[Rfam]
RNA: mir-150 microRNA precursor family
RNA sequence: UCUCAUGGCCCUGUCUCCCAACCCUUGUACCAGUGUGUGUCUUGGUCCCUGGUACAGGUACGGGGAGGCAGGGACCUGGGG
Numbered sequence: 001u002c003u004c005a006u007g008g009c010c011c012u013g014u015c016u017c018c019c020a021a022c023c024c025u026u027g028u029a030c031c032a033g034u035g036u037g038u039g040u041c042u043u044g045g046u047c048c049c050u051g052g053u054a055c056a057g058g059u060a061c062g063g064g065g066a067g068g069c070a071g072g073g074a075c076c077u078g079g080g081g
Stems, first nucleotide, its partner, number of pairs: 010072003014068002016065003022058002026056007